Background
The record is a 149-nucleotide sequence from Otolemur garnettii, which matches "U12 minor spliceosomal RNA" in Rfam. NCBI's taxonomy places the organism under Eukaryota, Chordata, Euteleostomi, Tetrapoda, Otolemur. The sequence is in the family's curated seed alignment. The family has 62 seed sequences and 2,106 matches in Rfam 15.1. Rfam classes the family as a spliceosomal small nuclear RNA.
RNA sequence: AUACCUUAAAUUUAUGAGUAGGGAAAAUAACAAUUUGGGAUGACGCCCAAAUUCUCACUGCUUAUGUGAGACAAAUUUUUGAGCUGGUAAAGGUUGUCCAAAGGUGACCCAUCUACUUUGUGGAAUGCCUGGGUAUCAUGAUCUGCCCG
Numbered sequence: 001a002u003a004c005c006u007u008a009a010a011u012u013u014a015u016g017a018g019u020a021g022g023g024a025a026a027a028u029a030a031c032a033a034u035u036u037g038g039g040a041u042g043a044c045g046c047c048c049a050a051a052u053u054c055u056c057a058c059u060g061c062u063u064a065u066g067u068g069a070g071a072c073a074a075a076u077u078u079u080u081g082a083g084c085u086g087g088u089a090a091a092g093g094u095u096g097u098c099c100a101a102a103g104g105u106g107a108c109c110c111a112u113c114u115a116c117u118u119u120g121u122g123g124a125a126u127g128c129c130u131g132g133g134u135a136u137c138a139u140g141a142u143c144u145g146c147c148c149g
Base pairs, nucleotide, nucleotide: 004023005022006021007020008019032053033052034051035050036049037048038047039046054070055069056068057067058066084149086147087146088145091144092143093142094141095140096139097138099133102130103129104128105127106126109123110122111121112120